[Rfam]
This 80-nucleotide RNA sequence from Medicago truncatula belongs to the Rfam family "MIR5269 microRNA precursor family".
The base pairs follow the family's consensus structure, which was predicted with RNAalifold.
NCBI's taxonomy places the organism under Eukaryota, Euphyllophyta, Gunneridae, Papilionoideae, Medicago.
RNA sequence: UUAGGUGAAAACAAUGUGGGAUCUACACUUUGAAAAUGGAACCCACAUAAAGUGGUGGGACAUACAUUAAUUUAAUCCAA
Numbered sequence: 001u002u003a004g005g006u007g008a009a010a011a012c013a014a015u016g017u018g019g020g021a022u023c024u025a026c027a028c029u030u031u032g033a034a035a036a037u038g039g040a041a042c043c044c045a046c047a048u049a050a051a052g053u054g055g056u057g058g059g060a061c062a063u064a065c066a067u068u069a070a071u072u073u074a075a076u077c078c079a080a
Base pairs, nucleotide, nucleotide: 001080002079004077005076006075008073009072010071013068014067015066016065017064018063023058024057025056026054027053028052029051030050031049032048